A member of the RNA family "Methylobacterium-1 RNA", 104 nucleotides long. Rfam classes the family as a small RNA.
[Rfam]
RNA sequence: AAAGUUGGAUAUGGGUGAAUAAACAUUACCAGCAGGACGAAGGAACAUUUUACCUUCACACGAUAUGUCUAUCAUGCAAUCGGUUUCAUAUCGUGACCGUAGUU
Number, nucleotide and partner (000 for none) at each position: 001a000002a000003a000004g033005u032006u031007g030008g029009a000010u000011a026012u025013g024014g000015g000016u000017g000018a000019a000020u000021a000022a000023a000024c013025a012026u011027u000028a000029c008030c007031a006032g005033c004034a000035g000036g000037a000038c000039g057040a056041a055042g054043g053044a000045a000046c000047a000048u000049u000050u000051u000052a000053c043054c042055u041056u040057c039058a000059c095060a094061c093062g092063a091064u090065a089066u088067g087068u000069c000070u000071a084072u083073c082074a000075u000076g000077c000078a000079a000080u000081c000082g073083g072084u071085u000086u000087c067088a066089u065090a064091u063092c062093g061094u060095g059096a000097c000098c000099g000100u000101a000102g000103u000104u000